[Rfam]
RNA sequence: GCGAGUUGACGAUAGAAUUCAUUGUCUGUCAAUCCACUGACUAAUUUGUGUGAUGUAAACAGUGAAUCCCGACAGGUUCUGAUCGC
Numbered sequence: 001g002c003g004a005g006u007u008g009a010c011g012a013u014a015g016a017a018u019u020c021a022u023u024g025u026c027u028g029u030c031a032a033u034c035c036a037c038u039g040a041c042u043a044a045u046u047u048g049u050g051u052g053a054u055g056u057a058a059a060c061a062g063u064g065a066a067u068c069c070c071g072a073c074a075g076g077u078u079c080u081g082a083u084c085g086c
Base pairs, nucleotide, nucleotide: 001086002085003084004083